[Rfam]
RNA sequence: UGGUGCCCCUCACCCACUGUGGAAGAUCCCCCAUGAGCGAGGGGCAGCAGGGAAC
Numbered sequence: 001u002g003g004u005g006c007c008c009c010u011c012a013c014c015c016a017c018u019g020u021g022g023a024a025g026a027u028c029c030c031c032c033a034u035g036a037g038c039g040a041g042g043g044g045c046a047g048c049a050g051g052g053a054a055c
Base pairs, nucleotide, nucleotide: 006044007043008042009041010040011039013037015035016034025055027053028052029051030050
Shown here is a 55-nucleotide RNA from Nannospalax galili, a member of the family "Antizyme RNA frameshifting stimulation element". The match comes from Rfam's covariance-model search (42 bits). On this family, see Ivanov et al., J Mol Biol 2004: "Identification of a new antizyme mRNA +1 frameshifting stimulatory pseudoknot in a subset of diverse invertebrates and its apparent absence in intermediate species". Gene Ontology term of the family: translational frameshifting. Taxonomically the source falls in Nannospalax (Eukaryota, Opisthokonta, Chordata, Theria). By type it is a frameshift element. This family represents a structural element which is found in antizyme mRNA and is known to promote frameshifting. Pairs were carried over by alignment from the consensus structure, which is taken from published work.